Small nucleolar RNA snoR27: an 89-nucleotide sequence from Trifolium pratense. Its Rfam clan is "snR68 clan". NCBI's taxonomy places the organism under Eukaryota, Streptophyta, Spermatophyta, fabids, Trifolium. On this family, see Brown et al., RNA 2001: "Multiple snoRNA gene clusters from Arabidopsis". By type it is a C/D-box small nucleolar RNA.

[Rfam]
RNA sequence: UAUAGAUCUGUGAUGUUAUUUUAAACUGCGUUAUCUAUCUGAAACCUCGCUAGAGGAAUUGAGGAUAAUCUUAUAUGCUGAGAUCUAAG
Number, nucleotide and partner (000 for none) at each position: 001u089002a000003u087004a086005g085006a084007u083008c000009u000010g000011u000012g000013a000014u000015g000016u000017u000018a000019u000020u000021u000022u000023a000024a000025a000026c000027u000028g000029c000030g000031u000032u000033a000034u000035c000036u000037a000038u000039c000040u000041g000042a000043a000044a000045c000046c000047u000048c000049g000050c000051u000052a000053g000054a000055g000056g000057a000058a000059u000060u000061g000062a000063g000064g000065a000066u000067a000068a000069u000070c000071u000072u000073a000074u000075a000076u000077g000078c000079u000080g000081a000082g000083a007084u006085c005086u004087a003088a000089g001